[Rfam]
RNA sequence: UUUUAUGAGCGUUCGGUGGAUGCCUUGGCAUCAGGGGCCGAUGAAGGACGUGGUGGCCUGCGAUAAGCCUCGGGGAGCCGGCUGACGGGCUGUGAUCCGAGGGUGUCCGAAUGGGGGGACCCGGCACGAGUCAUGUCGUGUCACCCGUACCUGAAUCCAUAGGGUGCGGGGGGUGACGCGGGGAAGUGAAACAUCUCAGUACCCGCAGGAGAAGAUAUUCCGUUAGUAGUGGCGAGCGAACGCGGAUGAUGGUUAAACCACGGUCGUGUGAUACCCGGCAGGGGUUGCGGUCGUGGGGUUGUGGGGCGUGUUCUUCUGCCAUCUGCCGGUGGUGGGCGCGGUGACAAACCUGGCUGGUAGCCGAACCCUCUGGGAAGGGGGGCCGUAGAGGGUGAGAGCCCCGUAGGCUAAACUGGCCGGGCCGUGCGGGCACGACCCCGAGUAGCACGGGGCCCGUGGAAUCCUGUGUGAAUCUGCCAAGACCACUUGGCUGCCUGAAUACUUCCUGAUGACCGAUAGCGGAUCAGUACCGUGAGGGAAUGGUGAAAAGUACCCCGGGAGGGGAGUGAAACAGUACCUGAAACCGGGCGCUUACAAG
Numbered sequence: 001u002u003u004u005a006u007g008a009g010c011g012u013u014c015g016g017u018g019g020a021u022g023c024c025u026u027g028g029c030a031u032c033a034g035g036g037g038c039c040g041a042u043g044a045a046g047g048a049c050g051u052g053g054u055g056g057c058c059u060g061c062g063a064u065a066a067g068c069c070u071c072g073g074g075g076a077g078c079c080g081g082c083u084g085a086c087g088g089g090c091u092g093u094g095a096u097c098c099g100a101g102g103g104u105g106u107c108c109g110a111a112u113g114g115g116g117g118g119a120c121c122c123g124g125c126a127c128g129a130g131u132c133a134u135g136u137c138g139u140g141u142c143a144c145c146c147g148u149a150c151c152u153g154a155a156u157c158c159a160u161a162g163g164g165u166g167c168g169g170g171g172g173g174u175g176a177c178g179c180g181g182g183g184a185a186g187u188g189a190a191a192c193a194u195c196u197c198a199g200u201a202c203c204c205g206c207a208g209g210a211g212a213a214g215a216u217a218u219u220c221c222g223u224u225a226g227u228a229g230u231g232g233c234g235a236g237c238g239a240a241c242g243c244g245g246a247u248g249a250u251g252g253u254u255a256a257a258c259c260a261c262g263g264u265c266g267u268g269u270g271a272u273a274c275c276c277g278g279c280a281g282g283g284g285u286u287g288c289g290g291u292c293g294u295g296g297g298g299u300u301g302u303g304g305g306g307c308g309u310g311u312u313c314u315u316c317u318g319c320c321a322u323c324u325g326c327c328g329g330u331g332g333u334g335g336g337c338g339c340g341g342u343g344a345c346a347a348a349c350c351u352g353g354c355u356g357g358u359a360g361c362c363g364a365a366c367c368c369u370c371u372g373g374g375a376a377g378g379g380g381g382g383c384c385g386u387a388g389a390g391g392g393u394g395a396g397a398g399c400c401c402c403g404u405a406g407g408c409u410a411a412a413c414u415g416g417c418c419g420g421g422c423c424g425u426g427c428g429g430g431c432a433c434g435a436c437c438c439c440g441a442g443u444a445g446c447a448c449g450g451g452g453c454c455c456g457u458g459g460a461a462u463c464c465u466g467u468g469u470g471a472a473u474c475u476g477c478c479a480a481g482a483c484c485a486c487u488u489g490g491c492u493g494c495c496u497g498a499a500u501a502c503u504u505c506c507u508g509a510u511g512a513c514c515g516a517u518a519g520c521g522g523a524u525c526a527g528u529a530c531c532g533u534g535a536g537g538g539a540a541u542g543g544u545g546a547a548a549a550g551u552a553c554c555c556c557g558g559g560a561g562g563g564g565a566g567u568g569a570a571a572c573a574g575u576a577c578c579u580g581a582a583a584c585c586g587g588g589c590g591c592u593u594a595c596a597a598g
Stems, first nucleotide, its partner, number of pairs: 007593010022578001023543002027514002029511007036503002038173002046108003049062003068102007077090003113122003123142007144170009177208001178206005188195002218499001219246005229237002251495003258296011303439003308433005349421010360408003366381005384388001390402003445469008476491005530537002553564004